[Rfam]
RNA sequence: ACCACACCCAUGUGUAUAGGACCUCAAACGAUCAGCAUUAAAUUUAACACAGAUCUCCAGAAAAGUUAUCACAUGGGUGUAGGACUUGACUUUUCUAGAGAUCUGUGUCAAAUUUAAUGGUGAUCCUUUGGGGUCCUACACAUAUGGGUGUGGG
Numbered sequence: 001a002c003c004a005c006a007c008c009c010a011u012g013u014g015u016a017u018a019g020g021a022c023c024u025c026a027a028a029c030g031a032u033c034a035g036c037a038u039u040a041a042a043u044u045u046a047a048c049a050c051a052g053a054u055c056u057c058c059a060g061a062a063a064a065g066u067u068a069u070c071a072c073a074u075g076g077g078u079g080u081a082g083g084a085c086u087u088g089a090c091u092u093u094u095c096u097a098g099a100g101a102u103c104u105g106u107g108u109c110a111a112a113u114u115u116a117a118u119g120g121u122g123a124u125c126c127u128u129u130g131g132g133g134u135c136c137u138a139c140a141c142a143u144a145u146g147g148g149u150g151u152g153g154g
Base pairs, nucleotide, nucleotide: 002153003152004151005150006149007148008147009146010145011144012143013142015140017138018137019136020135021134022133023132024131025130026129027128028127030125031124032123034121036119037118038117039116040115041114042113043112044111045110047108048107049106050105051104052103053102054101055100056099057098059096060095061094062093063092064091065090066089067088068087069082071080072079073078
RNA: MIR8565 microRNA precursor family